RNA sequence: CACUGUCCAAAGGGGUGUCUCGUAGAGCCGAGGCUGAGAUGAAGGUGCAAGCCUUCGGACCCUGGAGCUGAUCUGGGUUAUGCCAGCGGAGCGAGAGGGCCAUGUAUAUCG
Numbered sequence: 001c002a003c004u005g006u007c008c009a010a011a012g013g014g015g016u017g018u019c020u021c022g023u024a025g026a027g028c029c030g031a032g033g034c035u036g037a038g039a040u041g042a043a044g045g046u047g048c049a050a051g052c053c054u055u056c057g058g059a060c061c062c063u064g065g066a067g068c069u070g071a072u073c074u075g076g077g078u079u080a081u082g083c084c085a086g087c088g089g090a091g092c093g094a095g096a097g098g099g100c101c102a103u104g105u106a107u108a109u110c111g
Stems, first nucleotide, its partner, number of pairs: 006099003011063004016057001017034005041056005067092003073086004
TPP riboswitch aptamer (THI element): a 111-nucleotide sequence from Devosia pacifica. Its family is annotated with thiamine pyrophosphate binding in the Gene Ontology. The organism belongs to Devosia, within Bacteria. The base pairs follow the family's consensus structure, which is taken from published work.